[Rfam]
RNA sequence: CCUUCGCUGAUGAGUAACCCUUUGACUUUCGUUCUUCUGAGCGCGCUGAAGCGAUGUUUUUUGAUCUGAGGAGG
Numbered sequence: 001c002c003u004u005c006g007c008u009g010a011u012g013a014g015u016a017a018c019c020c021u022u023u024g025a026c027u028u029u030c031g032u033u034c035u036u037c038u039g040a041g042c043g044c045g046c047u048g049a050a051g052c053g054a055u056g057u058u059u060u061u062u063g064a065u066c067u068g069a070g071g072a073g074g
Base pairs, nucleotide, nucleotide: 001074002073003072005070

Small nucleolar RNA SNORD59: a 74-nucleotide RNA from Lophotis ruficrista. A search with the family's covariance model found it, with a score of 72 bits. Gene Ontology terms of the family: nucleolus and RNA processing. Rfam classes the family as a C/D-box small nucleolar RNA. On this family, see Galardi et al., Mol Cell Biol 2002: "Purified box C/D snoRNPs are able to reproduce site-specific 2'-O-methylation of target RNA in vitro".